[Rfam]
RNA sequence: AUAAAGAGAGGGAGGAGAGACGGGGACGAGACAGAGCAUGAGAGGGGCAAAUUCAAUACGGUGUCGUUUGGUAUUGUUGCCCUUUUCCUGCACUGCCUCUUUCCCGGCUCAUCUCCAUCUCCCACCA
Number, nucleotide and partner (000 for none) at each position: 001a000002u000003a000004a000005a000006g000007a000008g000009a000010g000011g000012g000013a000014g000015g000016a000017g110018a109019g108020a000021c106022g105023g104024g103025g102026a101027c000028g000029a098030g097031a000032c095033a094034g093035a000036g091037c090038a089039u000040g087041a086042g000043a000044g000045g082046g081047g000048c000049a000050a000051a000052u000053u000054c000055a000056a000057u000058a000059c000060g000061g000062u000063g000064u000065c000066g000067u000068u000069u000070g000071g000072u000073a000074u000075u000076g000077u000078u000079g000080c000081c046082c045083u000084u000085u000086u041087c040088c000089u038090g037091c036092a000093c034094u033095g032096c000097c030098u029099c000100u000101u026102u025103c024104c023105c022106g021107g000108c019109u018110c017111a000112u000113c000114u000115c000116c000117a000118u000119c000120u000121c000122c000123c000124a000125c000126c000127a000
The family of this 127-nucleotide RNA from Striga hermonthica is "MIR408 microRNA precursor family". The organism belongs to Striga, within Eukaryota. The base pairs follow the family's consensus structure, which was predicted with WAR. A search with the family's covariance model found it, with a score of 65 bits. The family has 8 seed sequences and 299 matches in Rfam 15.1.